[Rfam]
RNA sequence: CCAACGGCUCUUUUAAGAGCCACCCAAUUUUUCUCCGAAAGUGCUG
Numbered sequence: 001c002c003a004a005c006g007g008c009u010c011u012u013u014u015a016a017g018a019g020c021c022a023c024c025c026a027a028u029u030u031u032u033c034u035c036c037g038a039a040a041g042u043g044c045u046g
Stems, first nucleotide, its partner, number of pairs: 006021006